[Rfam]
RNA sequence: UGAGCUGGCCGGGCAAUCGCUGCCGUUUCGACGGUGGAGGAAAGUCCGGGCUCCACAGGGUGGGACGCCAGGUAACGCCUGGGGGGCGCGAGCCUACGGAAAGUGCAGCAGAGAGUAGACCGCCGAUGGCCCCGGACCCCGGUUCGCGGGCACAGGUAAGGGUGAAACGGUGCGGUAAGAGCGCACCGCGCAGCUGGUAACAGUCUGCGGCGAUGGUAAACCCCGUCCGGAGCAAGACCAAAUAGGCCCUCUAUAGGUGUGACCCGCACUGAGGGCGGGUAGGUCGCUUGAGGUGUCUGGUGACAGGCAUCCCAGAUGAAUGAUUGUCGCGAGCGGUGAUCCGCUCGACAGAACCCGGCUUACAGGCCAGCUCAUCCG
Numbered sequence: 001u002g003a004g005c006u007g008g009c010c011g012g013g014c015a016a017u018c019g020c021u022g023c024c025g026u027u028u029c030g031a032c033g034g035u036g037g038a039g040g041a042a043a044g045u046c047c048g049g050g051c052u053c054c055a056c057a058g059g060g061u062g063g064g065a066c067g068c069c070a071g072g073u074a075a076c077g078c079c080u081g082g083g084g085g086g087c088g089c090g091a092g093c094c095u096a097c098g099g100a101a102a103g104u105g106c107a108g109c110a111g112a113g114a115g116u117a118g119a120c121c122g123c124c125g126a127u128g129g130c131c132c133c134g135g136a137c138c139c140c141g142g143u144u145c146g147c148g149g150g151c152a153c154a155g156g157u158a159a160g161g162g163u164g165a166a167a168c169g170g171u172g173c174g175g176u177a178a179g180a181g182c183g184c185a186c187c188g189c190g191c192a193g194c195u196g197g198u199a200a201c202a203g204u205c206u207g208c209g210g211c212g213a214u215g216g217u218a219a220a221c222c223c224c225g226u227c228c229g230g231a232g233c234a235a236g237a238c239c240a241a242a243u244a245g246g247c248c249c250u251c252u253a254u255a256g257g258u259g260u261g262a263c264c265c266g267c268a269c270u271g272a273g274g275g276c277g278g279g280u281a282g283g284u285c286g287c288u289u290g291a292g293g294u295g296u297c298u299g300g301u302g303a304c305a306g307g308c309a310u311c312c313c314a315g316a317u318g319a320a321u322g323a324u325u326g327u328c329g330c331g332a333g334c335g336g337u338g339a340u341c342c343g344c345u346c347g348a349c350a351g352a353a354c355c356c357g358g359c360u361u362a363c364a365g366g367c368c369a370g371c372u373c374a375u376c377c378g
Base pairs, nucleotide, nucleotide: 001374002373003372004371005370006369007368008367009366010365011363012328013327014326015325016324017323018322020037021036022035023034024033025032026031042361043360044359046358047357048356049355050354051232052231053230054229058265059264060263061262063228064227065226066225067224068082069081070080071079072078083097084095085094086093087092098223099222103221104220105217106216120161121160122157123156124155127152128151130149169187170186171185172184173183174182188211189209190208191207192206193205194203195202196201236285237284238283239282246276247275248274249273250272251271256270257269258268259267260266292311293310294309295308296307297306298305299304